Annotation: The record is a 219-nucleotide RNA sequence from Papaver somniferum, which matches "Plant small nucleolar RNA U3" in Rfam.

[Rfam]
RNA sequence: ACGAACUUACUUGAACAUUAUCUGUUCUAUGGGCUCGUACCUUUGUAUCCUUGAGUUCCAAGGAGACAGGAACCCCGUAUGUUUGAUGAACCAUGACCGCAUGAACAGUGCGUGAUUAAUGGCGCGCAGGCCUAUGAUGUAGUCCCUGGCGCUGUAGAUGAUCGUUCUCAGCUUGGCCCCUUAACAUGUUGUGGUGGUCGUGUGAUUGUCUAACAGACU
Numbered sequence: 001a002c003g004a005a006c007u008u009a010c011u012u013g014a015a016c017a018u019u020a021u022c023u024g025u026u027c028u029a030u031g032g033g034c035u036c037g038u039a040c041c042u043u044u045g046u047a048u049c050c051u052u053g054a055g056u057u058c059c060a061a062g063g064a065g066a067c068a069g070g071a072a073c074c075c076c077g078u079a080u081g082u083u084u085g086a087u088g089a090a091c092c093a094u095g096a097c098c099g100c101a102u103g104a105a106c107a108g109u110g111c112g113u114g115a116u117u118a119a120u121g122g123c124g125c126g127c128a129g130g131c132c133u134a135u136g137a138u139g140u141a142g143u144c145c146c147u148g149g150c151g152c153u154g155u156a157g158a159u160g161a162u163c164g165u166u167c168u169c170a171g172c173u174u175g176g177c178c179c180c181u182u183a184a185c186a187u188g189u190u191g192u193g194g195u196g197g198u199c200g201u202g203u204g205a206u207u208g209u210c211u212a213a214c215a216g217a218c219u
Base pairs, nucleotide, nucleotide: 001038002037003035006032007031013027014026015025016024017023043069044068045067046066048064049063050062051061052060053059077218078217080215081214096206098204099203100202101201102200103199104198106196107195110165111164112163119155120154121153122152123151124150125149129145130144132142133141134140135139169191170190171189172188174186175185
NCBI's taxonomy places the organism under Eukaryota, Streptophytina, Tracheophyta, Euphyllophyta, Papaver. A search with the family's covariance model found it, with a score of 124 bits. It is annotated as a C/D-box small nucleolar RNA. From the family's description: Small nucleolar RNAs (snoRNAs) are involved in the processing and modification of rRNA in the nucleolus. There are two main classes of snoRNAs: the box C/D class, and the box H/ACA class. U3 snoRNA is a member of the box C/D class. Indeed, the box C/D element is a subset of the six short sequence elements found in all U3 snoRNAs, namely boxes A, A', B, C, C', and D. The U3 snoRNA secondary structure is characterised by a small 5' domain (with boxes A and A'), and a larger 3' domain (with boxes B, C, C', and D), the two domains being linked by a single-stranded hinge. Boxes B and C form the B/C motif, which appears to be exclusive to U3 snoRNAs, and boxes C' and D form the C'/D motif. The latter is functionally similar to the C/D motifs found in other snoRNAs. The 5' domain and the hinge region act as a pre-rRNA-binding domain. The 3' domain has conserved protein-binding sites. Both the box B/C and box C'/D motifs are sufficient for nuclear retention of U3 snoRNA. The box C'/D motif is also necessary for nucleolar localisation, stability and hyper-methylation of U3 snoRNA. Both box B/C and C'/D motifs are involved in specific protein interactions and are necessary for the rRNA processing functions of U3 snoRNA. A reference for the family is Marz and Stadler (2010), "Comparative analysis of eukaryotic U3 snoRNA", RNA Biol.